[Rfam]
RNA sequence: CACCCUCCUUUCACUUUGCCAGUUAGACAGUUAUUGUCUUGAUUGGCCAUUCAAGGUGGGUAAAGUAUAUAUCCUUUUUAUAACCCAAGCAAACGAUGCUUGUUUGGCUUGGAUCCUGUCAGAGGAAACACUU
Numbered sequence: 001c002a003c004c005c006u007c008c009u010u011u012c013a014c015u016u017u018g019c020c021a022g023u024u025a026g027a028c029a030g031u032u033a034u035u036g037u038c039u040u041g042a043u044u045g046g047c048c049a050u051u052c053a054a055g056g057u058g059g060g061u062a063a064a065g066u067a068u069a070u071a072u073c074c075u076u077u078u079u080a081u082a083a084c085c086c087a088a089g090c091a092a093a094c095g096a097u098g099c100u101u102g103u104u105u106g107g108c109u110u111g112g113a114u115c116c117u118g119u120c121a122g123a124g125g126a127a128a129c130a131c132u133u
Base pairs, nucleotide, nucleotide: 035062036061037060038059039058043054044053045052046051072126073125074124075123076122077121086111087109090106091105092104093103094102
Rfam assigns this 133-nucleotide RNA sequence from Eurypyga helias to the family "Small nucleolar RNA SNORA27".
NCBI's taxonomy places the organism under Eukaryota, Metazoa, Dinosauria, Eurypygiformes, Eurypyga.
Its family is annotated with RNA processing and nucleolus in the Gene Ontology.
From the family's description: ACA27 is a member of the H/ACA class of snoRNA that guide the sites of modification of uridines to pseudouridines.
The family has 24 seed sequences and 819 matches in Rfam 15.1.